Description
Shown here is a 98-nucleotide RNA from Sulfitobacter noctilucicola, a member of the family "Bacterial small signal recognition particle RNA".
RNA sequence: UGAGAGGUUGGUGCGGGCAGGCGCCUCGCCAACCCGGUCAGAUCCGGAAGGAAGCAGCCGUAACGAGUCCCGCUUGGGUCGUUAUCAAUCUCUCACCA
Numbered sequence: 001u002g003a004g005a006g007g008u009u010g011g012u013g014c015g016g017g018c019a020g021g022c023g024c025c026u027c028g029c030c031a032a033c034c035c036g037g038u039c040a041g042a043u044c045c046g047g048a049a050g051g052a053a054g055c056a057g058c059c060g061u062a063a064c065g066a067g068u069c070c071c072g073c074u075u076g077g078g079u080c081g082u083u084a085u086c087a088a089u090c091u092c093u094c095a096c097c098a
Stems, first nucleotide, its partner, number of pairs: 004092005010085001013082003018076006025067004035060004043052003

Rfam classes the family as a non-coding RNA gene. A search with the family's covariance model found it, with a score of 54 bits. The literature on the family includes a 2016 paper in Proc Natl Acad Sci U S A by Righetti et al., "Temperature-responsive in vitro RNA structurome of Yersinia pseudotuberculosis".